[Rfam]
RNA sequence: CAGCCGGGUUUGUAAUAAAGCUCCGUUAGAUAGUAAUAUCUAAAAGAAACCUAUCUUUAUCAUGGGAAGCCUCUAGGAGGUUAUCAUGAGUGAAGCUGUAGAAAUACGGAACAUGCAACGACUAUCGAAAAGUGAGUAGCUGUCGAGAGGACACCUACAAUAUAACUGAGUAGAGUACACUCAAGUGGGUGGAAAUGGUAGGGCUCCUAGAGUAACGACUAGGAGUAAGAUAUAGUCUGCACUAUAUGGUGACAUAUAG
Numbered sequence: 001c002a003g004c005c006g007g008g009u010u011u012g013u014a015a016u017a018a019a020g021c022u023c024c025g026u027u028a029g030a031u032a033g034u035a036a037u038a039u040c041u042a043a044a045a046g047a048a049a050c051c052u053a054u055c056u057u058u059a060u061c062a063u064g065g066g067a068a069g070c071c072u073c074u075a076g077g078a079g080g081u082u083a084u085c086a087u088g089a090g091u092g093a094a095g096c097u098g099u100a101g102a103a104a105u106a107c108g109g110a111a112c113a114u115g116c117a118a119c120g121a122c123u124a125u126c127g128a129a130a131a132g133u134g135a136g137u138a139g140c141u142g143u144c145g146a147g148a149g150g151a152c153a154c155c156u157a158c159a160a161u162a163u164a165a166c167u168g169a170g171u172a173g174a175g176u177a178c179a180c181u182c183a184a185g186u187g188g189g190u191g192g193a194a195a196u197g198g199u200a201g202g203g204c205u206c207c208u209a210g211a212g213u214a215a216c217g218a219c220u221a222g223g224a225g226u227a228a229g230a231u232a233u234a235g236u237c238u239g240c241a242c243u244a245u246a247u248g249g250u251g252a253c254a255u256a257u258a259g
Base pairs, nucleotide, nucleotide: 005025006024007023008022010020011019013017029040030039031038050202051201052200053199055197060089061088062087063086064085065084070080071079072078073077090114091113096108118238120237121236122235123234124233205224206223207222208221209220210219244257245256246255247254248253

Record summary
Group I catalytic intron: a 259-nucleotide sequence from Kochikohdavirus PBEF19. Rfam's curators write: Group I catalytic introns are large self-splicing ribozymes. On this family, see Cate et al., Science 1996: "Crystal structure of a group I ribozyme domain: principles of RNA packing". A search with the family's covariance model found it, with a score of 67 bits. Taxonomically the source falls in Kochikohdavirus (Viruses, Heunggongvirae, Uroviricota, Brockvirinae).